[Rfam]
RNA sequence: AUCCGUGAUAGAGGUGCGGGCAUGAUCAGUACCUUCCGGGAGCUGUCGGCAAAGAACGGAAGGAAAAGGCAGGCUUGCCGAAGCUGCGGGAUAUUGACACUAUGCUGCUGCUGGGGUUGCGUCGAACAGGCGCAGAACUGUCACCUUCGGGUGGAGCGCUAUCUUGCCG
Numbered sequence: 001a002u003c004c005g006u007g008a009u010a011g012a013g014g015u016g017c018g019g020g021c022a023u024g025a026u027c028a029g030u031a032c033c034u035u036c037c038g039g040g041a042g043c044u045g046u047c048g049g050c051a052a053a054g055a056a057c058g059g060a061a062g063g064a065a066a067a068g069g070c071a072g073g074c075u076u077g078c079c080g081a082a083g084c085u086g087c088g089g090g091a092u093a094u095u096g097a098c099a100c101u102a103u104g105c106u107g108c109u110g111c112u113g114g115g116g117u118u119g120c121g122u123c124g125a126a127c128a129g130g131c132g133c134a135g136a137a138c139u140g141u142c143a144c145c146u147u148c149g150g151g152u153g154g155a156g157c158g159c160u161a162u163c164u165u166g167c168c169g
Base pairs, nucleotide, nucleotide: 007163008162009161010160011159016078017077018076019075020074021073023071024070032063033062034061035060036059037058038057082112083111084110086108087107088106089105091103092102093101113139114138117135118134119133120132121131122130123129141154142153143152144151145150

About this RNA: Rfam assigns this 169-nucleotide RNA from Acetonema longum to the family "Lysine riboswitch aptamer". It scores 109 bits against the family's covariance model.